RNA sequence: GGUUAGUGCAGCGAAUAAGGCAGUAAGCCCGGCAUGCCGGGCCGAUGAGCCGUCAUUGACCUAGUGUGACUCUGCCGAUAUAGAUUAGGCGCACUAACA
Numbered sequence: 001g002g003u004u005a006g007u008g009c010a011g012c013g014a015a016u017a018a019g020g021c022a023g024u025a026a027g028c029c030c031g032g033c034a035u036g037c038c039g040g041g042c043c044g045a046u047g048a049g050c051c052g053u054c055a056u057u058g059a060c061c062u063a064g065u066g067u068g069a070c071u072c073u074g075c076c077g078a079u080a081u082a083g084a085u086u087a088g089g090c091g092c093a094c095u096a097a098c099a
Stems, first nucleotide, its partner, number of pairs: 002098008019076004027042006047072003051068002054066005